[Rfam]
RNA sequence: UGAACACAAUAUUGUAAGUCGCUUUGGACAAAACCGUCUGCCAAAUGACUGUAA
Numbered sequence: 001u002g003a004a005c006a007c008a009a010u011a012u013u014g015u016a017a018g019u020c021g022c023u024u025u026g027g028a029c030a031a032a033a034c035c036g037u038c039u040g041c042c043a044a045a046u047g048a049c050u051g052u053a054a
Stems, first nucleotide, its partner, number of pairs: 013043001014041003020036002023033003